[Rfam]
RNA sequence: GUUAAUCUGGAAUGUGCGAUAACUCUUGUUAUUUUGAACCUACAUCACUUUAAACGGGAUUCCUAUUAUUACCUGAUUGAUGUCAAGCCCCCAUUUGGUCAGGGGAAGGCAGAGAGAAAGGUUGCGGUCGCCCACCUAGCAGUUAGCUAGGAGUCAAAAUAAAGGAGCCGGCAUUUUGGGGACAAC
Number, nucleotide and partner (000 for none) at each position: 001g000002u184003u000004a000005a000006u180007c179008u178009g177010g176011a175012a174013u173014g172015u171016g000017c170018g169019a000020u000021a000022a000023c000024u000025c000026u000027u000028g000029u000030u000031a160032u159033u158034u000035u156036g155037a154038a000039c151040c150041u000042a000043c000044a000045u000046c000047a000048c000049u000050u000051u000052a000053a000054a000055c000056g133057g132058g131059a000060u000061u000062c127063c126064u000065a000066u000067u000068a000069u000070u000071a122072c121073c120074u119075g000076a000077u116078u000079g000080a000081u000082g110083u109084c000085a000086a000087g000088c105089c104090c103091c102092c000093a000094u000095u000096u000097g000098g000099u000100c000101a000102g091103g090104g089105g088106a000107a000108g000109g083110c082111a000112g000113a000114g000115a000116g077117a000118a000119a074120g073121g072122u071123u000124g000125c000126g063127g062128u000129c000130g000131c058132c057133c056134a000135c000136c000137u000138a000139g000140c000141a000142g000143u000144u000145a000146g000147c000148u000149a000150g040151g039152a000153g000154u037155c036156a035157a000158a033159a032160u031161a000162a000163a000164g000165g000166a000167g000168c000169c018170g017171g015172c014173a013174u012175u011176u010177u009178g008179g007180g006181g000182a000183c000184a002185a000186c000

A member of the RNA family "6S / SsrS RNA" from Roseburia sp. CAG:100, 186 nucleotides long. Pairs were carried over by alignment from the consensus structure, which is taken from published work. NCBI's taxonomy places the organism under Bacteria, Bacillota, Clostridia, Lachnospiraceae, Roseburia. The family's RNA type in Rfam is non-coding RNA gene. The family has 150 seed sequences and 5,006 matches in Rfam 15.1.